RNA sequence: GGGUGCCUGAAGCUUUCCGAUUUCAGGUUUACUCUGAGGUCUGGAAAGAUGAAGCCCCAGGAGAUAUUUCUAUCAACCCGUACUGCACCCAUUUUGUUGGACGAUGAAAUGGAAUAGCCCCUAAUAUGUCAAAGCCAAAAUACCCUUUUGAAAAG
Number, nucleotide and partner (000 for none) at each position: 001g058002g057003g056004u000005g055006c054007c000008u053009g000010a000011a050012g000013c048014u047015u046016u045017c044018c043019g042020a000021u000022u039023u000024c038025a000026g000027g035028u000029u000030u000031a000032c000033u000034c000035u027036g000037a000038g024039g022040u000041c000042u019043g018044g017045a016046a015047a014048g013049a000050u011051g000052a000053a008054g006055c005056c003057c002058c001059a000060g078061g077062a000063g074064a073065u072066a071067u000068u000069u000070c000071u066072a065073u064074c063075a000076a000077c061078c060079c000080g120081u000082a000083c117084u116085g000086c000087a000088c000089c112090c111091a110092u109093u108094u107095u106096g105097u000098u000099g000100g000101a000102c000103g000104a000105u096106g095107a094108a093109a092110u091111g090112g089113a000114a000115u000116a084117g083118c000119c000120c080121c000122u000123a000124a147125u000126a000127u000128g143129u142130c000131a000132a000133a000134g000135c000136c000137a000138a000139a000140a000141u000142a129143c128144c000145c000146u000147u124148u000149u000150g000151a000152a000153a000154a000155g000
RNA: sok antitoxin (CssrC)